[Rfam]
RNA sequence: AAUAUAGGGGCGUGACCUGCUGACAUCGUCAGCAACAUGCCCAGGCAGUCAGGAUCCUCAAGACUGCGGCACGCUGUUCGUGUUCGAUCCACCCAAGGCCGCUGAGCUUCCGGUAGCGCGGUCGAUCGACAUCUGUCGAUGGAGGC
Dot-bracket structure: ..........((((....((((((...))))))..)))).....((((((..[[[[.....))))))((((((.....)))))).]]]]............................((.....((((((....))))))....))